Shown here is a 320-nucleotide sequence from Auriculariales sp. MPI-PUGE-AT-0066, a member of the family "Nuclear RNase P". By type it is a ribozyme. From the family's description: Ribonuclease P (RNase P) is a ubiquitous endoribonuclease, found in archaea, bacteria and eukarya as well as chloroplasts and mitochondria. Its best characterised activity is the generation of mature 5'-ends of tRNAs by cleaving the 5'-leader elements of precursor-tRNAs. Cellular RNase Ps are ribonucleoproteins. The family's consensus secondary structure is taken from published work.

Nucleotides: 320
Base pairs, nucleotide, nucleotide: 001320002319003318004317007313008312009311012274014272021067022066023065024064025063035052038049039048040047078302079301080300081299082298089237090236091235092234106120109117110116121137122136123135124134125133126132139232140231141230142229143228144227157218158217159216275290276289277288278287279286
Number, partner (000 for none) and nucleotide at each position: 001320g002319a003318c004317a005000g006000a007313u008312c009311a010000a011000u012274g013000g014272c015000c016000g017000u018000g019000u020000g021067g022066c023065c024064u025063g026000u027000a028000a029000c030000a031000u032000u033000c034000a035052g036000u037000u038049u039048g040047c041000c042000u043000c044000u045000g046000u047040g048039c049038a050000u051000u052035c053000c054000a055000u056000a057000a058000a059000a060000u061000a062000g063025c064024a065023g066022g067021c068000g069000g070000g071000c072000u073000a074000a075000a076000g077000u078302c079301g080300g081299a082298g083000u084000g085000c086000u087000u088000g089237g090236u091235c092234c093000c094000a095000g096000u097000u098000g099000g100000a101000g102000u103000c104000c105000a106120g107000u108000u109117c110116u111000u112000u113000g114000c115000u116110g117109g118000u119000u120106u121137g122136g123135g124134u125133g126132c127000u128000a129000a130000g131000u132126g133125c134124a135123u136122c137121u138000a139232g140231u141230g142229g143228u144227g145000c146000a147000g148000c149000u150000g151000a152000a153000a154000u155000g156000c157218g158217a159216g160000g161000u162000a163000u164000c165000u166000g167000g168000c169000a170000u171000g172000u173000c174000c175000c176000c177000a178000a179000c180000g181000a182000c183000c184000a185000g186000c187000c188000a189000u190000g191000c192000u193000g194000c195000g196000a197000g198000g199000g200000c201000u202000c203000a204000g205000c206000u207000u208000g209000a210000u211000c212000a213000a214000u215000c216159c217158u218157c219000u220000u221000g222000g223000g224000a225000a226000a227144c228143a229142c230141c231140a232139c233000g234092g235091g236090g237089c238000u239000u240000g241000a242000g243000c244000u245000g246000g247000u248000a249000a250000u251000c252000c253000a254000g255000c256000c257000u258000u259000g260000a261000g262000u263000g264000c265000a266000a267000u268000a269000c270000a271000c272014g273000g274012c275290g276289a277288a278287a279286c280000u281000u282000a283000a284000g285000u286279g287278u288277u289276u290275c291000a292000a293000c294000u295000c296000a297000a298082u299081u300080c301079c302078g303000a304000u305000u306000a307000c308000a309000c310000a311009u312008g313007a314000g315000u316000c317004u318003g319002u320001c